[Rfam]
RNA sequence: AUGCACCAGAUACUGGCCUGACCGCCUGCAGCUCAGUUGAGUUUUUUUUUACUGAUGCGUGCGUGACGUGGCUGUCAGGUCCAAAAUGGUGCUACAGAAACACAAGACCCUGAGAUUUAAGCUCUGAGAAGGGAGUCACUCCUCAGGUGUUAUAACUCUAGGGCACAUUA
Numbered sequence: 001a002u003g004c005a006c007c008a009g010a011u012a013c014u015g016g017c018c019u020g021a022c023c024g025c026c027u028g029c030a031g032c033u034c035a036g037u038u039g040a041g042u043u044u045u046u047u048u049u050u051a052c053u054g055a056u057g058c059g060u061g062c063g064u065g066a067c068g069u070g071g072c073u074g075u076c077a078g079g080u081c082c083a084a085a086a087u088g089g090u091g092c093u094a095c096a097g098a099a100a101c102a103c104a105a106g107a108c109c110c111u112g113a114g115a116u117u118u119a120a121g122c123u124c125u126g127a128g129a130a131g132g133g134a135g136u137c138a139c140u141c142c143u144c145a146g147g148u149g150u151u152a153u154a155a156c157u158c159u160a161g162g163g164c165a166c167a168u169u170a
Stems, first nucleotide, its partner, number of pairs: 003092006015081004020076003024072003027063004031058002033055001035053003039049002108163002126143001128141002144161001146159002149156002
RNA: Small Cajal body specific RNA 1
Organism: Anabarilius grahami